[Rfam]
RNA sequence: CGAGACUCGCGGGGCUUCCUCCCUAGUACGAGAGGACUGGGAGGGACGCACCCCUGGUGUGCCGGUUAUCGCGCUAGCGGUACCGCCGGGUAGCCACGUGCGGAACGGAUAAACGCUGAAGGCAUAUAAGCGUGAAACUCCCCCCAAGAUCAGGUCUCGGUUCGUAAGAUGAAGGCUCCCGGGAGACGACCGGGUCGAUAGGCCGGACGUGCAAGCGUGGCGACACGCUCAGCCGACCGGUACUAACAGCCGACC
Numbered sequence: 001c002g003a004g005a006c007u008c009g010c011g012g013g014g015c016u017u018c019c020u021c022c023c024u025a026g027u028a029c030g031a032g033a034g035g036a037c038u039g040g041g042a043g044g045g046a047c048g049c050a051c052c053c054c055u056g057g058u059g060u061g062c063c064g065g066u067u068a069u070c071g072c073g074c075u076a077g078c079g080g081u082a083c084c085g086c087c088g089g090g091u092a093g094c095c096a097c098g099u100g101c102g103g104a105a106c107g108g109a110u111a112a113a114c115g116c117u118g119a120a121g122g123c124a125u126a127u128a129a130g131c132g133u134g135a136a137a138c139u140c141c142c143c144c145c146a147a148g149a150u151c152a153g154g155u156c157u158c159g160g161u162u163c164g165u166a167a168g169a170u171g172a173a174g175g176c177u178c179c180c181g182g183g184a185g186a187c188g189a190c191c192g193g194g195u196c197g198a199u200a201g202g203c204c205g206g207a208c209g210u211g212c213a214a215g216c217g218u219g220g221c222g223a224c225a226c227g228c229u230c231a232g233c234c235g236a237c238c239g240g241u242a243c244u245a246a247c248a249g250c251c252g253a254c255c
Stems, first nucleotide, its partner, number of pairs: 001159007011145004017045007047102005055096003062089005067082006107139002113133005162172003174251004178194005199245003202241005209233001215228005
Shown here is a 255-nucleotide part of an RNA from Urbifossiella limnaea, a member of the family "Bacterial large subunit ribosomal RNA".